RNA sequence: UCGAGUUGGGGCUCCUUAUCCCGAUAUCCACGGCAGGAACGGGGGAACCACGAAUUGGCCCGCAAGCGCUGCGGGCCUCAGGGGUGAAGCCUGCGAAAGCAGGCCGGGCUUCUCCAGUCCGAACCCGACAGCUCACCUCGGCAGCCCAAUCAAGGAGAAAGA
Numbered sequence: 001u002c003g004a005g006u007u008g009g010g011g012c013u014c015c016u017u018a019u020c021c022c023g024a025u026a027u028c029c030a031c032g033g034c035a036g037g038a039a040c041g042g043g044g045g046a047a048c049c050a051c052g053a054a055u056u057g058g059c060c061c062g063c064a065a066g067c068g069c070u071g072c073g074g075g076c077c078u079c080a081g082g083g084g085u086g087a088a089g090c091c092u093g094c095g096a097a098a099g100c101a102g103g104c105c106g107g108g109c110u111u112c113u114c115c116a117g118u119c120c121g122a123a124c125c126c127g128a129c130a131g132c133u134c135a136c137c138u139c140g141g142c143a144g145c146c147c148a149a150u151c152a153a154g155g156a157g158a159a160a161g162a
Stems, first nucleotide, its partner, number of pairs: 010146004019038003040140005049081001082126003090103004106120004

About this RNA
The family of this 162-nucleotide sequence from Actinomyces massiliensis is "c-di-AMP riboswitch aptamer (ydaO/yuaA leader)". A search with the family's covariance model found it, with a score of 60 bits. Gene Ontology terms of the family: regulation of gene expression and cyclic-di-AMP binding.